[Rfam]
The record is a 92-nucleotide RNA sequence from Enterocloster clostridioformis, which matches "NiCo (Nickel/Cobalt) riboswitch aptamer" in Rfam. The base pairs follow the family's consensus structure, which is taken from published work. The family is grouped with related families in Rfam's "NiCo_riboswitches". Rfam links the family to the GO terms cobalt ion binding and metal ion homeostasis. The literature on the family includes a 2015 paper in Mol Cell by Furukawa et al., "Bacterial riboswitches cooperatively bind Ni(2+) or Co(2+) ions and control expression of heavy metal transporters".
RNA sequence: ACAGUACAAACUGAGCAGGCCGGAGGCGGGAAAAAGCCUUGGGAGCCGGGCCGCGAACAGCGGCAGCAGACCGUAACGUCUGUGGGACAGUG
Numbered sequence: 001a002c003a004g005u006a007c008a009a010a011c012u013g014a015g016c017a018g019g020c021c022g023g024a025g026g027c028g029g030g031a032a033a034a035a036g037c038c039u040u041g042g043g044a045g046c047c048g049g050g051c052c053g054c055g056a057a058c059a060g061c062g063g064c065a066g067c068a069g070a071c072c073g074u075a076a077c078g079u080c081u082g083u084g085g086g087a088c089a090g091u092g
Stems, first nucleotide, its partner, number of pairs: 010091004016086001018047003023040005050064005066083006
NCBI's taxonomy places the organism under Bacteria, Bacillati, Lachnospiraceae, Enterocloster, Enterocloster clostridioformis.